[Rfam]
RNA sequence: UGCCUUUAUGUGUUGCCUGUUCAUUCCAUGUGUUGUGAAUAUGGUGUCAACUAAGGCAUACAGUAACUCCUGUGGUGGUCUUUCACAGAGAUGUCCAGAGUGGCAUCUUAAGGGCUACCACAAGGACAUAU
Numbered sequence: 001u002g003c004c005u006u007u008a009u010g011u012g013u014u015g016c017c018u019g020u021u022c023a024u025u026c027c028a029u030g031u032g033u034u035g036u037g038a039a040u041a042u043g044g045u046g047u048c049a050a051c052u053a054a055g056g057c058a059u060a061c062a063g064u065a066a067c068u069c070c071u072g073u074g075g076u077g078g079u080c081u082u083u084c085a086c087a088g089a090g091a092u093g094u095c096c097a098g099a100g101u102g103g104c105a106u107c108u109u110a111a112g113g114g115c116u117a118c119c120a121c122a123a124g125g126a127c128a129u130a131u
Base pairs, nucleotide, nucleotide: 002057003056004055005054006053011049012048014046015045016044017043018041019040020039021038022037023036024035069124071122072121073120075119078116084114086112089109093104094103